Shown here is a 46-nucleotide RNA from Thermolongibacillus altinsuensis, a member of the family "Ribosomal protein L19 leader".
The base pairs follow the family's consensus structure, which was predicted with CMfinder.
From the family's description: This family is a putative r-protein leader autoregulatory structure found in B. subtilis and other low-GC Gram-positive bacteria. It is located in the 5' untranslated regions of mRNAs encoding ribosomal protein L19 (rplS).
The organism belongs to Thermolongibacillus, within Bacteria.
On this family, see Zengel and Lindahl, Prog Nucleic Acid Res Mol Biol 1994: "Diverse mechanisms for regulating ribosomal protein synthesis in Escherichia coli".
[Rfam]
RNA sequence: ACGAUGUUCCGCUGCUAUGGCUAACAAACAUAGGCAUGAGCAUCUG
Numbered sequence: 001a002c003g004a005u006g007u008u009c010c011g012c013u014g015c016u017a018u019g020g021c022u023a024a025c026a027a028a029c030a031u032a033g034g035c036a037u038g039a040g041c042a043u044c045u046g
Base pairs, nucleotide, nucleotide: 003044004043005042006041007040008039009038013036014035015033016032017031018030